[Rfam]
Nucleotides: 604
Base pairs, nucleotide, nucleotide: 010598015593016592019591021589022588025058026057027056028055029054037051038050039049041048060167061166062165063164064163065162075110076109077108078107079106080105082103083102084101085100086099087098088097089096090095111136112135113134114133115132116131117130120127121126139152140151141150142149143148175569176568178566180564187557189555192554193548196360197359198358199357202353206349207348208347209316210315211314212313213312232244233243234242235241257297258296259295260294261293262292267287268286269285270283276304277303278302279301317379318378319377320376327340328339329338330337331336364451370446371445372444373443374442433530434529435528436527455472458469474542475541476540477492494538495537496536502531503526505523506521508519509518510517511516575586576585577584578583
Number, partner (000 for none) and nucleotide at each position: 001000c002000u003000u004000a005000u006000a007000a008000c009000a010598a011000c012000a013000a014000a015593a016592a017000a018000u019591u020000g021589g022588g023000a024000c025058c026057u027056c028055a029054g030000u031000g032000a033000a034000g035000a036000a037051g038050a039049g040000c041048u042000u043000a044000a045000u046000c047000a048041a049039c050038u051037c052000u053000g054029c055028u056027g057026a058025g059000a060167g061166c062165a063164a064163u065162u066000u067000g068000a069000a070000u071000g072000u073000a074000g075110a076109g077108u078107a079106a080105a081000u082103g083102u084101u085100a086099u087098a088097u089096g090095g091000g092000a093000u094000a095090c096089u097088g098087u099086a100085u101084a102083g103082u104000g105080u106079u107078u108077a109076c110075u111136u112135c113134u114133u115132a116131c117130u118000g119000c120127g121126a122000g123000u124000g125000a126121u127120c128000a129000a130117a131116g132115u133114a134113a135112g136111a137000a138000a139152g140151a141150a142149g143148a144000a145000g146000a147000u148143u149142c150141u151140u152139c153000a154000a155000a156000u157000a158000c159000a160000a161000g162065a163064a164063u165062u166061g167060c168000g169000u170000g171000c172000c173000a174000u175569u176568u177000a178566a179000c180564u181000a182000u183000g184000a185000a186000a187557g188000a189555a190000a191000a192554g193548g194000u195000u196360g197359a198358c199357c200000c201000a202353a203000c204000a205000a206349g207348u208347c209316g210315g211314u212313g213312c214000a215000a216000u217000a218000a219000u220000u221000g222000a223000a224000g225000a226000a227000g228000u229000g230000u231000a232244c233243g234242a235241u236000u237000u238000a239000u240000a241235a242234u243233c244232g245000g246000a247000u248000a249000c250000u251000a252000a253000c254000a255000c256000g257297g258296c259295c260294u261293u262292u263000a264000a265000g266000u267287g268286u269285u270283a271000u272000c273000u274000a275000g276304g277303g278302a279301u280000a281000g282000a283270u284000a285269a286268a287267u288000u289000a290000c291000u292262a293261a294260a295259g296258g297257u298000a299000a300000u301279a302278u303277c304276c305000a306000a307000a308000a309000c310000a311000a312213g313212c314211a315210c316209u317379u318378g319377c320376c321000g322000g323000u324000g325000a326000u327340c328339u329338g330337a331336a332000g333000a334000a335000a336331u337330u338329c339328a340327g341000g342000u343000a344000u345000a346000a347208g348207a349206c350000a351000a352000a353202u354000c355000a356000g357199g358198g359197u360196u361000g362000a363000a364451u365000g366000a367000g368000u369000a370446c371445c372444a373443c374442a375000a376320g377319g378318c379317g380000a381000a382000a383000u384000u385000u386000a387000a388000u389000u390000a391000a392000a393000a394000u395000u396000g397000a398000a399000a400000a401000g402000u403000a404000u405000c406000a407000a408000u409000u410000a411000a412000c413000a414000u415000a416000u417000u418000a419000a420000a421000u422000u423000u424000a425000c426000a427000a428000a429000u430000u431000a432000u433530u434529c435528u436527g437000a438000a439000c440000g441000a442374u443373g444372u445371g446370g447000g448000a449000a450000a451364a452000u453000u454000g455472g456000a457000a458469g459000u460000a461000g462000a463000c464000g465000a466000a467000u468000c469458u470000c471000c472455u473000c474542u475541a476540g477492g478000c479000a480000u481000a482000c483000g484000g485000c486000g487000u488000a489000g490000a491000g492477c493000a494538g495537g496536g497000c498000a499000u500000a501000u502531a503526g504000a505523u506521u507000a508519g509518g510517g511516c512000g513000a514000c515000g516511g517510c518509c519508c520000g521506a522000a523505a524000u525000c526503u527436c528435a529434g530433g531502u532000a533000u534000g535000u536496u537495c538494u539000c540476c541475u542474a543000g544000u545000g546000a547000c548193u549000g550000a551000a552000u553000a554192u555189u556000c557187u558000g559000c560000a561000a562000u563000a564180g565000u566178u567000a568176a569175a570000c571000g572000g573000u574000a575586g576585g577584g578583c579000g580000a581000a582000g583578g584577c585576u586575c587000c588022c589021c590000a591019a592016u593015u594000a595000a596000c597000u598010u599000a600000u601000a602000a603000a604000a